The record is a 74-nucleotide sequence, which matches "DUF3800-IX RNA" in Rfam. The family's RNA type in Rfam is small RNA.

RNA sequence: GCUUCCGCUAUCCGAACUGUCGCCGUAUGGUUGGCGUGCCUGGGUUCCGCCCAGGAUAGGACGCGGGAGCGCAU
Numbered sequence: 001g002c003u004u005c006c007g008c009u010a011u012c013c014g015a016a017c018u019g020u021c022g023c024c025g026u027a028u029g030g031u032u033g034g035c036g037u038g039c040c041u042g043g044g045u046u047c048c049g050c051c052c053a054g055g056a057u058a059g060g061a062c063g064c065g066g067g068a069g070c071g072c073a074u
Stems, first nucleotide, its partner, number of pairs: 001070007011061003018036005024030001039055004
The family's consensus secondary structure is taken from published work.